[Rfam]
RNA sequence: CCCAUGACUAUAUGAUGAUAUAUAUGUUGGUAGGGACAUCUGAAUAAUAGUGAAGAAACGCCAACUAUUCUGACAGUAUGGG
Dot-bracket structure: (((((........................................................................)))))